This 113-nucleotide sequence from Brachypodium distachyon belongs to the Rfam family "MIR444 microRNA precursor family".
The sequence is in the family's curated seed alignment.
Its family is annotated with RISC complex and miRNA-mediated post-transcriptional gene silencing in the Gene Ontology.
Pairs were carried over by alignment from the consensus structure, which was predicted with RNAalifold.
The literature on the family includes a 2008 paper in Proc Natl Acad Sci U S A by Lu et al., "Genome-wide analysis for discovery of rice microRNAs reveals natural antisense microRNAs (nat-miRNAs)".

RNA sequence: GUGGUGACAAACUUGAGGCAGCAACUGCAUAUCUUGCAAGAAAAUUGGGUUUCAGAGCAUACCGAUGAUUUUCUUGCAAGUUGUGCAGUUGUUGUCUCAAGCUUGCUGCCUCC
Numbered sequence: 001g002u003g004g005u006g007a008c009a010a011a012c013u014u015g016a017g018g019c020a021g022c023a024a025c026u027g028c029a030u031a032u033c034u035u036g037c038a039a040g041a042a043a044a045u046u047g048g049g050u051u052u053c054a055g056a057g058c059a060u061a062c063c064g065a066u067g068a069u070u071u072u073c074u075u076g077c078a079a080g081u082u083g084u085g086c087a088g089u090u091g092u093u094g095u096c097u098c099a100a101g102c103u104u105g106c107u108g109c110c111u112c113c
Stems, first nucleotide, its partner, number of pairs: 008105003012101001015098002018095002028085003033080001035078005042071003046067001